[Rfam]
This 81-nucleotide RNA from Clupea harengus belongs to the Rfam family "mir-132 microRNA precursor family". Its family is annotated with miRNA-mediated post-transcriptional gene silencing and RISC complex in the Gene Ontology. Taxonomically the source falls in Clupea (Eukaryota, Opisthokonta, Metazoa, Deuterostomia).
RNA sequence: CUCCAUGGUGACCGUGGCUUUAGAUUGUUACUGUACCAACAGCACGUGGUAACAGUCUACAGCCAUGGUCGUCAGGGGGGC
Numbered sequence: 001c002u003c004c005a006u007g008g009u010g011a012c013c014g015u016g017g018c019u020u021u022a023g024a025u026u027g028u029u030a031c032u033g034u035a036c037c038a039a040c041a042g043c044a045c046g047u048g049g050u051a052a053c054a055g056u057c058u059a060c061a062g063c064c065a066u067g068g069u070c071g072u073c074a075g076g077g078g079g080g081c
Stems, first nucleotide, its partner, number of pairs: 012068002015065004023057010